[Rfam]
RNA sequence: GCGUCGGCUUAGCUCAGCGGUUACUUCGUCUAAAGAAUUUGUUGGCAGCUCUUGGGCUGCCGGUUCGAACCGCGGGCGCUGUCCGGCGUUUUG
Numbered sequence: 001g002c003g004u005c006g007g008c009u010u011a012g013c014u015c016a017g018c019g020g021u022u023a024c025u026u027c028g029u030c031u032a033a034a035g036a037a038u039u040u041g042u043u044g045g046c047a048g049c050u051c052u053u054g055g056g057c058u059g060c061c062g063g064u065u066c067g068a069a070c071c072g073c074g075g076g077c078g079c080u081g082u083c084c085g086g087c088g089u090u091u092u093g
Base pairs, nucleotide, nucleotide: 002088003087004086005085006084007083012077013076014075015074017073018072019071020070025069026068027067028066
The record is a 93-nucleotide sequence from Conger conger, which matches "Vault RNA" in Rfam. By type it is a non-coding RNA gene. A search with the family's covariance model found it, with a score of 71 bits. Pairs were carried over by alignment from the consensus structure, which is taken from published work. Taxonomically the source falls in Conger (Eukaryota, Craniata, Vertebrata, Euteleostomi). This family of RNAs are found as part of the enigmatic vault ribonucleoprotein complex. The complex consists of a major vault protein (MVP), two minor vault proteins (VPARP and TEP1), and several small untranslated RNA molecules.